The family of this 178-nucleotide RNA from Streptomyces broussonetiae is "c-di-AMP riboswitch aptamer (ydaO/yuaA leader)".
RNA sequence: CAUCCACGAACACAUUUCGUACGGCAGGAGCGGGGGACCCAGGUAAGUCGCCUGACCGGUCGGCACCCGUCGCACCGGAACGGCUAGGGGUGAAGCCGCGCUUUCCCAGGAAGGCACGGCCGGGCACCUCCCCGCCCGAACCCGACAGCUCACCUCGCAGGCGCCGGAGAGGAACGUC
Numbered sequence: 001c002a003u004c005c006a007c008g009a010a011c012a013c014a015u016u017u018c019g020u021a022c023g024g025c026a027g028g029a030g031c032g033g034g035g036g037a038c039c040c041a042g043g044u045a046a047g048u049c050g051c052c053u054g055a056c057c058g059g060u061c062g063g064c065a066c067c068c069g070u071c072g073c074a075c076c077g078g079a080a081c082g083g084c085u086a087g088g089g090g091u092g093a094a095g096c097c098g099c100g101c102u103u104u105c106c107c108a109g110g111a112a113g114g115c116a117c118g119g120c121c122g123g124g125c126a127c128c129u130c131c132c133c134g135c136c137c138g139a140a141c142c143c144g145a146c147a148g149c150u151c152a153c154c155u156c157g158c159a160g161g162c163g164c165c166g167g168a169g170a171g172g173a174a175c176g177u178c
Stems, first nucleotide, its partner, number of pairs: 003029003030158006040087001088143003096119003122137004
Taxonomically the source falls in Streptomyces (Bacteria, Bacillati, Actinomycetota, Streptomycetaceae).